A member of the RNA family "mir-193 microRNA precursor family" from Conger conger, 76 nucleotides long. Lineage of the source: Eukaryota > Eumetazoa > Deuterostomia > Neopterygii > Conger.
RNA sequence: AUUUGGGUUGCGAGAUUUUGGGGGCGAGAUGAGUGUAAUAGAAAUCCAACUGGCCCGCAAAGUCCCGCUUCCAACA
Numbered sequence: 001a002u003u004u005g006g007g008u009u010g011c012g013a014g015a016u017u018u019u020g021g022g023g024g025c026g027a028g029a030u031g032a033g034u035g036u037a038a039u040a041g042a043a044a045u046c047c048a049a050c051u052g053g054c055c056c057g058c059a060a061a062g063u064c065c066c067g068c069u070u071c072c073a074a075c076a
Base pairs, nucleotide, nucleotide: 003074004073005072006071007070011067012066014064016062017061018060019059020058022056023055024054025053027051028050030048031047